[Rfam]
RNA sequence: GUGCCUUAAACUAAUGAGUAAGGAAAAUAACGAGUGCCAGCGGAGGCUGGUCUCCCUGACAAAGUUUCAGGAGGAAUUUCUAAAGGGGUACAGGUCGUACCUGAGUGUCCCACCUACUUCUGUGGGACGCCGGGAAUACAUGAUCUUCCCC
Numbered sequence: 001g002u003g004c005c006u007u008a009a010a011c012u013a014a015u016g017a018g019u020a021a022g023g024a025a026a027a028u029a030a031c032g033a034g035u036g037c038c039a040g041c042g043g044a045g046g047c048u049g050g051u052c053u054c055c056c057u058g059a060c061a062a063a064g065u066u067u068c069a070g071g072a073g074g075a076a077u078u079u080c081u082a083a084a085g086g087g088g089u090a091c092a093g094g095u096c097g098u099a100c101c102u103g104a105g106u107g108u109c110c111c112a113c114c115u116a117c118u119u120c121u122g123u124g125g126g127a128c129g130c131c132g133g134g135a136a137u138a139c140a141u142g143a144u145c146u147u148c149c150c151c
Stems, first nucleotide, its partner, number of pairs: 004023005032054003036051005055071005085151004092146007101134001105130003109126005
RNA: U12 minor spliceosomal RNA
Organism: Bugula neritina